[Rfam]
RNA sequence: CCAUCUGGCAUCCUAGGUGGGGUGCCGUGGGACCUUCCUCGUGUCUGUGGCAGUGGAAUCCCAUGGUCGUGUUUUCCUGGUGGCCCGGCU
Numbered sequence: 001c002c003a004u005c006u007g008g009c010a011u012c013c014u015a016g017g018u019g020g021g022g023u024g025c026c027g028u029g030g031g032a033c034c035u036u037c038c039u040c041g042u043g044u045c046u047g048u049g050g051c052a053g054u055g056g057a058a059u060c061c062c063a064u065g066g067u068c069g070u071g072u073u074u075u076c077c078u079g080g081u082g083g084c085c086c087g088g089c090u
Stems, first nucleotide, its partner, number of pairs: 005088004011083002013080005019073002022070002024067009033053001036050002038047001
A member of the RNA family "mir-663 microRNA precursor family" from Pongo abelii, 90 nucleotides long. Taxonomically the source falls in Pongo (Eukaryota, Gnathostomata, Dipnotetrapodomorpha, Hominidae). For this family Rfam cites "MicroRNA expression profiles of human leukemias" (Takada et al., Leukemia, 2008). The match comes from Rfam's covariance-model search (87 bits).